[Rfam]
RNA: HgcG RNA (Pab40)
Organism: Pyrococcus furiosus
RNA sequence: CUCAUAAUCUCUUUUUUUGAAGUCAACAUUAUAAACGUCUUAAUGUAAAAUAAUUAACGCCCCCGCAAGCGAGGGCUUGGCUGAUCUUAAUGAGGCCAGGUGCGACGCGGGGGCAACAGCCCGGCCUCAGCGAGGUCCCCUCGGGAGGUGCCUUCCGCGUCACGGAGUGCCGUGACCGGGGGUAACCCUGGCCGGGCACAGGCCCACCUGGGUUAGCCCGCCUGAGAAUGCAUACAUGCUACGAUGAGGGCGGGUGUUACGGGUGGGCCACAUAUAA
Numbered sequence: 001c002u003c004a005u006a007a008u009c010u011c012u013u014u015u016u017u018u019g020a021a022g023u024c025a026a027c028a029u030u031a032u033a034a035a036c037g038u039c040u041u042a043a044u045g046u047a048a049a050a051u052a053a054u055u056a057a058c059g060c061c062c063c064c065g066c067a068a069g070c071g072a073g074g075g076c077u078u079g080g081c082u083g084a085u086c087u088u089a090a091u092g093a094g095g096c097c098a099g100g101u102g103c104g105a106c107g108c109g110g111g112g113g114c115a116a117c118a119g120c121c122c123g124g125c126c127u128c129a130g131c132g133a134g135g136u137c138c139c140c141u142c143g144g145g146a147g148g149u150g151c152c153u154u155c156c157g158c159g160u161c162a163c164g165g166a167g168u169g170c171c172g173u174g175a176c177c178g179g180g181g182g183u184a185a186c187c188c189u190g191g192c193c194g195g196g197c198a199c200a201g202g203c204c205c206a207c208c209u210g211g212g213u214u215a216g217c218c219c220g221c222c223u224g225a226g227a228a229u230g231c232a233u234a235c236a237u238g239c240u241a242c243g244a245u246g247a248g249g250g251c252g253g254g255u256g257u258u259a260c261g262g263g264u265g266g267g268c269c270a271c272a273u274a275u276a277a
Base pairs, nucleotide, nucleotide: 059114060113061112062111063110064109065108066107076100077099078098079097080096081095082094119197120196121195122194123193124192125191126190131143132142133141134140135139155179156178159176160175161174162173163172164171165170201269202268203267204266205265206264207263208262209261210260217254218253219252220251221250222249223248230239231238